[Rfam]
RNA sequence: AGGUGCCGUCGUUCGCUGAGGCUCCUUCGCGGAAACAGGCCGGCGACCCCGAACGUCGAGAGACGCCCCGGGUCAGGACAGGUCUUCCCGGAUUAAGGGUUGACUCCGACCGGCUCCCAGCCCACUGGGUUCACGCCGCGAAGUGCCAAAGGUCUUACGAGGAGUGGCAACC
Numbered sequence: 001a002g003g004u005g006c007c008g009u010c011g012u013u014c015g016c017u018g019a020g021g022c023u024c025c026u027u028c029g030c031g032g033a034a035a036c037a038g039g040c041c042g043g044c045g046a047c048c049c050c051g052a053a054c055g056u057c058g059a060g061a062g063a064c065g066c067c068c069c070g071g072g073u074c075a076g077g078a079c080a081g082g083u084c085u086u087c088c089c090g091g092a093u094u095a096a097g098g099g100u101u102g103a104c105u106c107c108g109a110c111c112g113g114c115u116c117c118c119a120g121c122c123c124a125c126u127g128g129g130u131u132c133a134c135g136c137c138g139c140g141a142a143g144u145g146c147c148a149a150a151g152g153u154c155u156u157a158c159g160a161g162g163a164g165u166g167g168c169a170a171c172c
Stems, first nucleotide, its partner, number of pairs: 005168005011158002013096001015153003020147003025143008039114005045074005054065004081105004087099003116129003

A member of the RNA family "M-box riboswitch aptamer (ykoK leader)" from Nocardia mexicana, 172 nucleotides long. Rfam's curators write: M-box riboswitch, also know as ykoK leader is described as a metaloregulatory RNA that sense divalent metals and function as a genetic control element of genes related to divalent metal transport in bacteria. It was first reported upstream of the B.subtilis ykoK gene and genes with related functions in other bacteria. It scores 127 bits against the family's covariance model.